[Rfam]
This 68-nucleotide RNA from Rhodoferax antarcticus belongs to the Rfam family "ilvH RNA".
RNA sequence: AACAAAUCUAUUGCUUGCCAAGCCCUGCGGUUACCGCUGCGGGAGGAGGGCGGUGAAAAGAGGCGUCA
Numbered sequence: 001a002a003c004a005a006a007u008c009u010a011u012u013g014c015u016u017g018c019c020a021a022g023c024c025c026u027g028c029g030g031u032u033a034c035c036g037c038u039g040c041g042g043g044a045g046g047a048g049g050g051c052g053g054u055g056a057a058a059a060g061a062g063g064c065g066u067c068a
Stems, first nucleotide, its partner, number of pairs: 011056003015053005024043008

The base pairs follow the family's consensus structure, which is taken from published work.